Shown here is a 59-nucleotide RNA from Ictalurus punctatus, a member of the family "mir-24 microRNA precursor family". Pairs were carried over by alignment from the consensus structure, which was predicted with RNAalifold. The source organism's lineage runs through Eukaryota, Deuterostomia, Neopterygii, Ictaluridae and Ictalurus.
RNA sequence: UGCCUGCUGUGCUGAUAAUCAGUGGACGGCUGUGACUGGCUCAGUUCAGCAGGAACAGG
Number, nucleotide and partner (000 for none) at each position: 001u055002g000003c053004c052005u051006g000007c049008u048009g047010u000011g045012c044013u043014g042015a041016u000017a000018a000019u039020c038021a037022g036023u035024g000025g000026a000027c000028g000029g000030c000031u000032g000033u000034g000035a023036c022037u021038g020039g019040c000041u015042c014043a013044g012045u011046u000047c009048a008049g007050c000051a005052g004053g003054a000055a001056c000057a000058g000059g000